[Rfam]
RNA sequence: CAAAGCAAGCAGGAGCGCCCGCUUCUCACCUGUUGACGCCUUUUGGCAGUUGCCGGGUUUUAGUAUGAACAAUGAAUGGGUUAAGUGUGGGCGUUUUUGUGUCCACACUUUUUUAUGUUA
Numbered sequence: 001c002a003a004a005g006c007a008a009g010c011a012g013g014a015g016c017g018c019c020c021g022c023u024u025c026u027c028a029c030c031u032g033u034u035g036a037c038g039c040c041u042u043u044u045g046g047c048a049g050u051u052g053c054c055g056g057g058u059u060u061u062a063g064u065a066u067g068a069a070c071a072a073u074g075a076a077u078g079g080g081u082u083a084a085g086u087g088u089g090g091g092c093g094u095u096u097u098u099g100u101g102u103c104c105a106c107a108c109u110u111u112u113u114u115a116u117g118u119u120a
Base pairs, nucleotide, nucleotide: 011026012025013024014023015022016021028058029057030056035051036050037049038047039046086107087106088105089104090103091102092101093100094099
The family of this 120-nucleotide RNA sequence from Pueribacillus theae is "Ribosomal protein L20 leader". Gene Ontology term of the family: regulation of gene expression. Pairs were carried over by alignment from the consensus structure, which was predicted with CMfinder. By type it is a cis-regulatory leader. NCBI's taxonomy places the organism under Bacteria, Bacilli, Caryophanales, Bacillaceae, Pueribacillus.